A member of the RNA family "Small nucleolar RNA SNORA81" from Betta splendens, 183 nucleotides long. NCBI's taxonomy places the organism under Eukaryota, Opisthokonta, Eumetazoa, Teleostei, Betta. The base pairs follow the family's consensus structure, which was predicted with WAR. It is annotated as an H/ACA-box small nucleolar RNA. The match comes from Rfam's covariance-model search (100 bits). Rfam 15.1 lists 1,161 matches to the family in 643 species.
RNA sequence: CCUUCCCUUUUUAAAGCACCCUGCUGAAACUGCGGCAGCCAGGCCUCUGGUUUAGCUCCUGUGGCCAUGUAAGCAUGGGUAUAUCAGGGAAGAAGAUUAAAAGCACAGUAUCUGAAAUGAGGCUUGGGGGAACCUCUUUCUUAAUGUUCAAUGUCCAUUGUCUCAAGGUUCUGUGUUACAUAU
Numbered sequence: 001c002c003u004u005c006c007c008u009u010u011u012u013a014a015a016g017c018a019c020c021c022u023g024c025u026g027a028a029a030c031u032g033c034g035g036c037a038g039c040c041a042g043g044c045c046u047c048u049g050g051u052u053u054a055g056c057u058c059c060u061g062u063g064g065c066c067a068u069g070u071a072a073g074c075a076u077g078g079g080u081a082u083a084u085c086a087g088g089g090a091a092g093a094a095g096a097u098u099a100a101a102a103g104c105a106c107a108g109u110a111u112c113u114g115a116a117a118u119g120a121g122g123c124u125u126g127g128g129g130g131a132a133c134c135u136c137u138u139u140c141u142u143a144a145u146g147u148u149c150a151a152u153g154u155c156c157a158u159u160g161u162c163u164c165a166a167g168g169u170u171c172u173g174u175g176u177u178a179c180a181u182a183u
Stems, first nucleotide, its partner, number of pairs: 019079002022075004029068001032065001035059001038056002041053005102177007110169001127152001130149003
Dot-bracket structure: ..................((.((((...(..(..(..((.(((((...))))).))..).....)..)...))))..))......................(((((((.(................(..(((..............)))..)................).)))))))......